[Rfam]
RNA sequence: UCGCGCUAAGCGGGGAGGUGGCGGUGCCCUGUACCUGCAAUCCGCCAUAGCAGGGCUGAACUCCGACUCGCGGCGCGCUCCCUGUGCGAAACGCAGGCACGCGCUCGUGAGGAUCAUCGGGACCUCCGCAACGGAGCGACGGCGAACCCCGCCAGGUCCGGAAGGAAGCAACGGUAAGUCGUUCCCCCGUGUGCCGGAGUUAUCCCGGUGGGAGCGAGCAGCGACCUGACGCCGCGGAGGGAGGCGUCAACAGUCGGUGCGCGA
Numbered sequence: 001u002c003g004c005g006c007u008a009a010g011c012g013g014g015g016a017g018g019u020g021g022c023g024g025u026g027c028c029c030u031g032u033a034c035c036u037g038c039a040a041u042c043c044g045c046c047a048u049a050g051c052a053g054g055g056c057u058g059a060a061c062u063c064c065g066a067c068u069c070g071c072g073g074c075g076c077g078c079u080c081c082c083u084g085u086g087c088g089a090a091a092c093g094c095a096g097g098c099a100c101g102c103g104c105u106c107g108u109g110a111g112g113a114u115c116a117u118c119g120g121g122a123c124c125u126c127c128g129c130a131a132c133g134g135a136g137c138g139a140c141g142g143c144g145a146a147c148c149c150c151g152c153c154a155g156g157u158c159c160g161g162a163a164g165g166a167a168g169c170a171a172c173g174g175u176a177a178g179u180c181g182u183u184c185c186c187c188c189g190u191g192u193g194c195c196g197g198a199g200u201u202a203u204c205c206c207g208g209u210g211g212g213a214g215c216g217a218g219c220a221g222c223g224a225c226c227u228g229a230c231g232c233c234g235c236g237g238a239g240g241g242a243g244g245c246g247u248c249a250a251c252a253g254u255c256g257g258u259g260c261g262c263g264a
Base pairs, nucleotide, nucleotide: 001264002263003262004261005260006259009057010056011055012030013029014028015027017025019023034054035053036052037051038050063257064256065255066254067253068252072248073247074246075245076244079242080241081240082239083238085236086235087234088233092231093230094228095227096226097225100223103219104218106216107215108214114211115210116209117208118207119206120205121204122203124199125198126197127196128195129191130190132189133188134187136185138183139182140181141180142179143178149174150173151172157166158165159164
Bacterial large signal recognition particle RNA: a 264-nucleotide RNA from bacterium HR14. About the family: The signal recognition particle (SRP) is a universally conserved ribonucleoprotein involved in the co-translational targeting of proteins to membranes. The family's consensus secondary structure is taken from published work. The family's RNA type in Rfam is non-coding RNA gene. The match comes from Rfam's covariance-model search (172 bits).